[Rfam]
RNA sequence: CGUGGGCGCGCGGGAGAGUGCGACAGGUCUUUCAGGCCAUCACGUCGCCGCCGAAGGAGCAACCACCCCGGAAUCUCUCAGGCAUCAGGGACCGCGCUUGCCCG
Numbered sequence: 001c002g003u004g005g006g007c008g009c010g011c012g013g014g015a016g017a018g019u020g021c022g023a024c025a026g027g028u029c030u031u032u033c034a035g036g037c038c039a040u041c042a043c044g045u046c047g048c049c050g051c052c053g054a055a056g057g058a059g060c061a062a063c064c065a066c067c068c069c070g071g072a073a074u075c076u077c078u079c080a081g082g083c084a085u086c087a088g089g090g091a092c093c094g095c096g097c098u099u100g101c102c103c104g
Base pairs, nucleotide, nucleotide: 006099008097009096010095011094012093013092020048021047022046023045050083051082052081053079054078057077058076059075063071064070
A member of the RNA family "Glycine riboswitch aptamer" from Sphingomonas jeddahensis, 104 nucleotides long. The base pairs follow the family's consensus structure. It scores 58 bits against the family's covariance model. The organism belongs to Sphingomonas, within Bacteria.